[Rfam]
RNA sequence: UGGGGUCUGAGGGGAAGCUGCUUUUAGUACGAGAGGAACAAAGCAGCGGCGCCUCUGGUGUACCGGUUGUCCGACAGGGCAUUGCCGGGCAGCUACGCGCUAAUGGAUAAGAGCUGAAAGCAUCUAAGCUCGAAGCCAGCCCCAAAAAGAGACCUCGUGGACACCGUUAGAAGAACGGUUUGAUAGGGCUGGGGUGUAAGAAUCGACCCGAAAGGGGAGAUUUUCAGCCCGCAGCUACUAACGUCCA
Dot-bracket structure: ((((((((..((((..((((((((...............))))))))(((((...(((....((((((((((....)))))..)))))....))).)))))..(((....(((((...........)))))....))).))))......)))))))).(((((((((.......)))))....(((((((((((.....(((((..(........)..)))))....))).))))).)))..)))).
Background:
This 247-nucleotide part of an RNA from a Candidatus Methanophagaceae archaeon belongs to the Rfam family "Archaeal large subunit ribosomal RNA". The family's consensus secondary structure is taken from published work. It scores 2923 bits against the family's covariance model.